[Rfam]
RNA sequence: GAAACUCCUCACGCCCGUGGGGUGGAGCAGGUGUAAUGGGGGACACCUGUUCGAAAAAAAGCGGCU
Numbered sequence: 001g002a003a004a005c006u007c008c009u010c011a012c013g014c015c016c017g018u019g020g021g022g023u024g025g026a027g028c029a030g031g032u033g034u035a036a037u038g039g040g041g042g043a044c045a046c047c048u049g050u051u052c053g054a055a056a057a058a059a060a061g062c063g064g065c066u
Base pairs, nucleotide, nucleotide: 005024007022008021009020010019011018012017025052026051027050028049029048030047031046032045033044034043
Dot-bracket structure: ....(.((((((....)))))).)((((((((((........))))))))))..............

Overview:
The family of this 66-nucleotide RNA from Pelodictyon luteolum is "Chlorobi-1 RNA". The base pairs follow the family's consensus structure, which is taken from published work. Lineage of the source: Bacteria > Chlorobiota > Chlorobiales > Chlorobiaceae > Pelodictyon luteolum.